[Rfam]
Nucleotides: 075
Base pairs, nucleotide, nucleotide: 006068007067008066009065010064013061014060015059016058017057020054021053022052024051025050026049027048028047
Number, partner (000 for none) and nucleotide at each position: 001000u002000g003000g004000g005000c006068c007067g008066u009065c010064a011000a012000u013061u014060c015059c016058g017057u018000a019000g020054u021053g022052c023000a024051u025050u026049g027048c028047a029000g030000u031000g032000u033000u034000u035000a036000a037000u038000c039000u040000a041000a042000c043000u044000g045000a046000c047028u048027g049026c050025a051024a052022g053021c054020a055000u056000c057017g058016c059015g060014g061013a062000a063000c064010u065009g066008a067007c068006g069000g070000u071000u072000c073000g074000g075000c